[Rfam]
RNA: Hepatitis C virus stem-loop SL2531 and SL2549AU
RNA sequence: UGUUGGCUGACUCACGUAUUUGUCUCUGCUUAUGGCUCAUGUUCCUAGUAGGCCAGGCAGAGGCGGCACUGG
Numbered sequence: 001u002g003u004u005g006g007c008u009g010a011c012u013c014a015c016g017u018a019u020u021u022g023u024c025u026c027u028g029c030u031u032a033u034g035g036c037u038c039a040u041g042u043u044c045c046u047a048g049u050a051g052g053c054c055a056g057g058c059a060g061a062g063g064c065g066g067c068a069c070u071g072g
Stems, first nucleotide, its partner, number of pairs: 006023002009020002025066001027065005034058001037055001